The family of this 49-nucleotide RNA sequence from Roseobacter ponti is "SAM/SAH riboswitch aptamer". The literature on the family includes a 2019 paper in Nucleic Acids Res by Weickhmann et al., "The structure of the SAM/SAH-binding riboswitch". The family's consensus secondary structure is taken from published work. The organism belongs to Roseobacter, within Bacteria.

RNA sequence: AACGUGUUCCAACGGCUUCCUGACGGCGCACGGUUUUUUCAAUGGAGCG
Numbered sequence: 001a002a003c004g005u006g007u008u009c010c011a012a013c014g015g016c017u018u019c020c021u022g023a024c025g026g027c028g029c030a031c032g033g034u035u036u037u038u039u040c041a042a043u044g045g046a047g048c049g
Stems, first nucleotide, its partner, number of pairs: 004031004009026002013022002015048003019045002
Dot-bracket structure: ...((((.((..(([[[.[[))..)).))))............]]]]].